[Rfam]
RNA: Bacterial RNase P class A
RNA sequence: UACCAAGGGGAUGCCGCCGCUCGGGGCUUUUUCCAAGCACCGAGAGGAAAGUCCGGACUCUUCAAGGCAACAAUCCAUUGGAAACAAUGGGCUUGAAUAGGCGAAAGCCAUUCAAGACGGAGAGUGUCACAGAAAAAAUACCGCCCAAAAGAACUUUGGGUAAGGGUGAAAAGGCGGGGUAAGAGCCCACCGCAUGGAUGGUAACAUCCAUGGCAGGACAAACCCAUUGUGGAGCAAGGUCAAGCAGGGACAACGGUAGCCUUGCCAUUCUCAAAGUUAGAUUUGAGAUGUCCCAGGUAGACCGCACUGCUCCUUAAUGGAGCGGAUCCCUUAGGGAUAGACAGAUGGCGGCAAGUCCAGGAGACUGGAUUACAGAAUCCGGCUUAUUCCCCUCGGUAUCUU
Numbered sequence: 001u002a003c004c005a006a007g008g009g010g011a012u013g014c015c016g017c018c019g020c021u022c023g024g025g026g027c028u029u030u031u032u033c034c035a036a037g038c039a040c041c042g043a044g045a046g047g048a049a050a051g052u053c054c055g056g057a058c059u060c061u062u063c064a065a066g067g068c069a070a071c072a073a074u075c076c077a078u079u080g081g082a083a084a085c086a087a088u089g090g091g092c093u094u095g096a097a098u099a100g101g102c103g104a105a106a107g108c109c110a111u112u113c114a115a116g117a118c119g120g121a122g123a124g125u126g127u128c129a130c131a132g133a134a135a136a137a138a139u140a141c142c143g144c145c146c147a148a149a150a151g152a153a154c155u156u157u158g159g160g161u162a163a164g165g166g167u168g169a170a171a172a173g174g175c176g177g178g179g180u181a182a183g184a185g186c187c188c189a190c191c192g193c194a195u196g197g198a199u200g201g202u203a204a205c206a207u208c209c210a211u212g213g214c215a216g217g218a219c220a221a222a223c224c225c226a227u228u229g230u231g232g233a234g235c236a237a238g239g240u241c242a243a244g245c246a247g248g249g250a251c252a253a254c255g256g257u258a259g260c261c262u263u264g265c266c267a268u269u270c271u272c273a274a275a276g277u278u279a280g281a282u283u284u285g286a287g288a289u290g291u292c293c294c295a296g297g298u299a300g301a302c303c304g305c306a307c308u309g310c311u312c313c314u315u316a317a318u319g320g321a322g323c324g325g326a327u328c329c330c331u332u333a334g335g336g337a338u339a340g341a342c343a344g345a346u347g348g349c350g351g352c353a354a355g356u357c358c359a360g361g362a363g364a365c366u367g368g369a370u371u372a373c374a375g376a377a378u379c380c381g382g383c384u385u386a387u388u389c390c391c392c393u394c395g396g397u398a399u400c401u402u
Stems, first nucleotide, its partner, number of pairs: 001398004006393005011387001012353007020044005026038003049385003053382005058234004066278003070230005075090005091118001092116007119225002124223002126219003141165002143161007173191002176188003192214001193212008238303004247294006270287005311336003